Rfam assigns this 267-nucleotide sequence from Penicillium olsonii to the family "Fungal signal recognition particle RNA". The match comes from Rfam's covariance-model search (160 bits). The literature on the family includes a 2002 paper in Curr Opin Struct Biol by Wild et al., "Towards the structure of the mammalian signal recognition particle". NCBI's taxonomy places the organism under Eukaryota, saccharomyceta, Pezizomycotina, Eurotiales, Penicillium.
RNA sequence: UAUCUGUCACGGAUAACCGAGUGGAAGGCUCAUCGCCAUGCACAUUUCCCUGCUUCGACGCAAGUCAGCGGGUGCAGGUGCCUGGUACGAAUCCCGGGGUUGGCAAUUCACUCGUGCGAGUAAUCCACGACGCUGGAGGCCACUAAGCCAUGGAAAUGACCCUUGAGGGAAGCAAUUCUGCAGAGACAUUUCCACCCCAGGAUGGCGUCGCCAGAUUACACCGUUCCGUUACAGGGAUGGGUGCAAUUUGGUGGGACGACCACUUUU
Numbered sequence: 001u002a003u004c005u006g007u008c009a010c011g012g013a014u015a016a017c018c019g020a021g022u023g024g025a026a027g028g029c030u031c032a033u034c035g036c037c038a039u040g041c042a043c044a045u046u047u048c049c050c051u052g053c054u055u056c057g058a059c060g061c062a063a064g065u066c067a068g069c070g071g072g073u074g075c076a077g078g079u080g081c082c083u084g085g086u087a088c089g090a091a092u093c094c095c096g097g098g099g100u101u102g103g104c105a106a107u108u109c110a111c112u113c114g115u116g117c118g119a120g121u122a123a124u125c126c127a128c129g130a131c132g133c134u135g136g137a138g139g140c141c142a143c144u145a146a147g148c149c150a151u152g153g154a155a156a157u158g159a160c161c162c163u164u165g166a167g168g169g170a171a172g173c174a175a176u177u178c179u180g181c182a183g184a185g186a187c188a189u190u191u192c193c194a195c196c197c198c199a200g201g202a203u204g205g206c207g208u209c210g211c212c213a214g215a216u217u218a219c220a221c222c223g224u225u226c227c228g229u230u231a232c233a234g235g236g237a238u239g240g241g242u243g244c245a246a247u248u249u250g251g252u253g254g255g256a257c258g259a260c261c262a263c264u265u266u267u
Base pairs, nucleotide, nucleotide: 001015002014003013004012019265020264021263022262023261024260027257029255030254031253032252033251035249039245040244041243042242043241045235046234047233052065053064054063055062069228070227071226074224075223077222078221079220080219082214083213084212085211086210087208088207089206091203092202093201094200096198097197098196099195101142103140104139107137108136109135110134112130113129114128115127116126118125119124143147151194152193153192154191155190156189157188162185163184164183169178170177171176